[Rfam]
RNA sequence: UGACCCUUAUUAAGCCGAGGGUCACCUAGCCAACUGACGUUGUUAGUGAAUAAUGACUUGUUCACACAUAAAUACGGCCAAACACCUGAUUGUAUUUGGCCUUUUUUUU
Number, nucleotide and partner (000 for none) at each position: 001u024002g023003a022004c021005c020006c019007u000008u000009a000010u000011u000012a000013a000014g000015c000016c000017g000018a000019g006020g005021g004022u003023c002024a001025c000026c000027u000028a000029g000030c000031c000032a000033a000034c000035u000036g000037a000038c000039g000040u000041u074042g073043u072044u000045a000046g065047u064048g063049a062050a061051u060052a059053a000054u000055g000056a000057c000058u000059u052060g051061u050062u049063c048064a047065c046066a000067c000068a000069u000070a000071a000072a043073u042074a041075c000076g000077g000078c099079c098080a097081a096082a095083c000084a093085c092086c000087u000088g000089a000090u000091u000092g085093u084094a000095u082096u081097u080098g079099g078100c000101c000102u000103u000104u000105u000106u000107u000108u000109u000
Shown here is a 109-nucleotide RNA sequence from Vibrio vulnificus, a member of the family "Qrr RNA". Rfam links the family to the GO term quorum sensing. This family represents a set of small RNAs (the Qrr RNAs) that are thought to be involved in the regulation of quorum sensing in Vibrio species. It is believed that these RNAs, guided by a protein, Hfq, can mediate the destabilisation of the quorum-sensing master regulators LuxR/HapR mRNAs. It is one of the family's seed sequences. The literature on the family includes a 2015 paper in Cell by Feng et al., "A qrr noncoding RNA deploys four different regulatory mechanisms to optimize quorum-sensing dynamics". The family's RNA type in Rfam is small RNA.